[Rfam]
RNA: Pyrobaculum sRNA 210
RNA sequence: UGGGUUGGACGCCCGCCAGCGGCGGUGGGAUGAAAAACCCGCCCGCGGCCGAGCUUACA
Numbered sequence: 001u002g003g004g005u006u007g008g009a010c011g012c013c014c015g016c017c018a019g020c021g022g023c024g025g026u027g028g029g030a031u032g033a034a035a036a037a038c039c040c041g042c043c044c045g046c047g048g049c050c051g052a053g054c055u056u057a058c059a
Stems, first nucleotide, its partner, number of pairs: 001041006013025004